[Rfam]
RNA: U8 small nucleolar RNA
RNA sequence: UCAUCAGGUGGGAGAAUUCUUACAUGUUCCUCCUUUUGCAGGGAAGAUUAGAACAUGAUGAUUGGGGUUCGCAUAAUAUGUGAUUAACGUUUCUGUGUAAUCAGGACUUGCAACAUCCCGAAUGCUCUUACCUGAC
Dot-bracket structure: ........................(..((((.(....).)))).)..............................(.((((....).))).)....(((.((.((...........)).)).)))...........